mir-3154 microRNA precursor family: an 85-nucleotide sequence from Bos taurus.
[Rfam]
RNA sequence: AGGCCCCUCCUUCCCAGCCACAGCUCCUGCUCGCCCCUGCCACGUCAAAAGAGGCAGAAGGGGAGUCGGAGCAGAAAGGGGACCC
Numbered sequence: 001a002g003g004c005c006c007c008u009c010c011u012u013c014c015c016a017g018c019c020a021c022a023g024c025u026c027c028u029g030c031u032c033g034c035c036c037c038u039g040c041c042a043c044g045u046c047a048a049a050a051g052a053g054g055c056a057g058a059a060g061g062g063g064a065g066u067c068g069g070a071g072c073a074g075a076a077a078g079g080g081g082a083c084c085c
Stems, first nucleotide, its partner, number of pairs: 002084002004081005012075002023072003027069003030065003034062003037057005043051001

Rfam 15.1 lists 134 matches to the family in 121 species. Gene Ontology terms of the family: miRNA-mediated post-transcriptional gene silencing and RISC complex. It is one of the family's seed sequences.